RNA sequence: AAUCCAUCCCGAGCGGCCGAGAGACCUGGCUCUGAGACGCCGCAGCAACCACCCACCGCGGGCAGGUGCUACCGCCAGGAGCGAUGGAGG
Number, nucleotide and partner (000 for none) at each position: 001a000002a000003u088004c087005c086006a085007u084008c083009c000010c000011g000012a000013g043014c042015g041016g040017c039018c000019g000020a000021g032022a031023g030024a000025c000026c078027u077028g076029g075030c023031u022032c021033u000034g000035a000036g000037a000038c000039g017040c016041c015042g014043c013044a070045g069046c068047a067048a000049c066050c065051a000052c062053c061054c060055a000056c000057c000058g000059c000060g054061g053062g052063c000064a000065g050066g049067u047068g046069c045070u044071a000072c000073c000074g082075c029076c028077a027078g026079g000080a000081g000082c074083g008084a007085u006086g005087g004088a003089g000090g000
A member of the RNA family "SAM riboswitch aptamer (S box leader)" from Actinophytocola xanthii, 90 nucleotides long. Taxonomically the source falls in Actinophytocola (Bacteria, Bacillati, Actinomycetes, Pseudonocardiaceae). Its family is annotated with regulation of gene expression in the Gene Ontology. It scores 56 bits against the family's covariance model.